A member of the RNA family "Streptococcus sRNA SpF59 (ldcC RNA)", 65 nucleotides long. Pairs were carried over by alignment from the consensus structure, which was predicted with mfold. Rfam classes the family as a small RNA.
[Rfam]
RNA sequence: CGACCGCCGGACGGGCCAAGUUGCCCCAAGGCCAAGGCCACACGGACAGCCGGGUCGAAUGCCGA
Numbered sequence: 001c002g003a004c005c006g007c008c009g010g011a012c013g014g015g016c017c018a019a020g021u022u023g024c025c026c027c028a029a030g031g032c033c034a035a036g037g038c039c040a041c042a043c044g045g046a047c048a049g050c051c052g053g054g055u056c057g058a059a060u061g062c063c064g065a
Stems, first nucleotide, its partner, number of pairs: 001057005006032003